RNA: MIR2629 microRNA precursor family
RNA sequence: UGCUGAUGUUUUCUUCGGUAGUUAACUGUAGUCAGUUCCAUAAUUCGGCAGUUAACUGCCGAGGGGCAU
Number, nucleotide and partner (000 for none) at each position: 001u000002g000003c000004u000005g000006a000007u000008g000009u000010u000011u000012u065013c064014u000015u062016c061017g060018g059019u058020a057021g056022u055023u054024a053025a052026c051027u050028g049029u048030a000031g000032u000033c000034a000035g000036u000037u000038c000039c000040a000041u000042a000043a000044u000045u000046c000047g000048g029049c028050a027051g026052u025053u024054a023055a022056c021057u020058g019059c018060c017061g016062a015063g000064g013065g012066g000067c000068a000069u000